Source information: The family of this 90-nucleotide RNA from Thiocystis violascens is "sRNA-Xcc1". A search with the family's covariance model found it, with a score of 59 bits. Pairs were carried over by alignment from the consensus structure, which was predicted with RNAalifold. By type it is a small RNA. A reference for the family is Chen et al. (2011), "sRNA-Xcc1, an integron-encoded transposon- and plasmid-transferred trans-acting sRNA, is under the positive control of the key virulence regulators HrpG and HrpX of Xanthomonas campestris pathovar campestris", RNA Biol.
[Rfam]
RNA sequence: GGCCGGGAGUGCGCAUCGGAUACAACACCCGCAAGGGGAAACAUGCGCACGGUCUCACAGAGCCGUUCUGACCCUCCCGGCCGCCAGAGC
Number, nucleotide and partner (000 for none) at each position: 001g082002g081003c080004c079005g078006g077007g076008a075009g074010u000011g000012c047013g046014c045015a044016u000017c000018g042019g000020a000021u000022a000023c000024a000025a000026c000027a000028c037029c036030c035031g000032c000033a000034a000035g030036g029037g028038g000039a000040a000041a000042c018043a000044u015045g014046c013047g012048c000049a066050c065051g064052g063053u062054c000055u000056c000057a000058c000059a000060g000061a000062g053063c052064c051065g050066u049067u000068c000069u000070g000071a000072c000073c000074c009075u008076c007077c006078c005079g004080g003081c002082c001083g000084c000085c000086a000087g000088a000089g000090c000